A member of the RNA family "mir-5918 microRNA precursor family" from Haemonchus contortus, 85 nucleotides long.

[Rfam]
RNA sequence: CUGAUGGGAUAACGGGUAGCACGAUAGGAAGACAAGCUGUUGCGCAGGCUAGUCUCCUCGAUCGUGUUACCCAAUGUCUCAUCGC
Numbered sequence: 001c002u003g004a005u006g007g008g009a010u011a012a013c014g015g016g017u018a019g020c021a022c023g024a025u026a027g028g029a030a031g032a033c034a035a036g037c038u039g040u041u042g043c044g045c046a047g048g049c050u051a052g053u054c055u056c057c058u059c060g061a062u063c064g065u066g067u068u069a070c071c072c073a074a075u076g077u078c079u080c081a082u083c084g085c
Stems, first nucleotide, its partner, number of pairs: 002084010014072012027058002030055002033052001035050004
The family has 4 seed sequences and 5 matches in Rfam 15.1. The family's consensus secondary structure was predicted with RNAalifold. It is one of the family's seed sequences.